Small nucleolar RNA U3: a 216-nucleotide RNA sequence from Gadus morhua. Rfam's curators write: Small nucleolar RNAs (snoRNAs) are involved in the processing and modification of rRNA in the nucleolus. There are two main classes of snoRNAs: the box C/D class, and the box H/ACA class. Taxonomically the source falls in Gadus (Eukaryota, Actinopterygii, Gadariae, Gadoidei). The match comes from Rfam's covariance-model search (144 bits). The family is grouped with related families in Rfam's "U3 clan". The family has 87 seed sequences and 19,072 matches in Rfam 15.1. The family's consensus secondary structure is taken from published work.

RNA sequence: AAGAUCAUGCUUUCAGGGAUUAUUUCUAUGGUCUUUGACUUGAGAAAUAUCGUACGAAAGUGAUCGGUAACUCUAACCACGAUGAAGAGAACUGAUGUUCCCUUCUGAGCGCGAAGCGGGCAGUGAGUGAUGAUGCAUUUCAUCCGCUCCCUGUCAUUGAUGACCGAUCCAUGCUCUCUAGUGGAGCCUGGAGGUAGGGAACAUGAUCAGAGUGGU
Numbered sequence: 001a002a003g004a005u006c007a008u009g010c011u012u013u014c015a016g017g018g019a020u021u022a023u024u025u026c027u028a029u030g031g032u033c034u035u036u037g038a039c040u041u042g043a044g045a046a047a048u049a050u051c052g053u054a055c056g057a058a059a060g061u062g063a064u065c066g067g068u069a070a071c072u073c074u075a076a077c078c079a080c081g082a083u084g085a086a087g088a089g090a091a092c093u094g095a096u097g098u099u100c101c102c103u104u105c106u107g108a109g110c111g112c113g114a115a116g117c118g119g120g121c122a123g124u125g126a127g128u129g130a131u132g133a134u135g136c137a138u139u140u141c142a143u144c145c146g147c148u149c150c151c152u153g154u155c156a157u158u159g160a161u162g163a164c165c166g167a168u169c170c171a172u173g174c175u176c177u178c179u180a181g182u183g184g185a186g187c188c189u190g191g192a193g194g195u196a197g198g199g200a201a202c203a204u205g206a207u208c209a210g211a212g213u214g215g216u
Stems, first nucleotide, its partner, number of pairs: 001041003005037001007034001009032003015027004049064003054061002076216005095204009105194002110166002119155004125149004129144005170190002173187005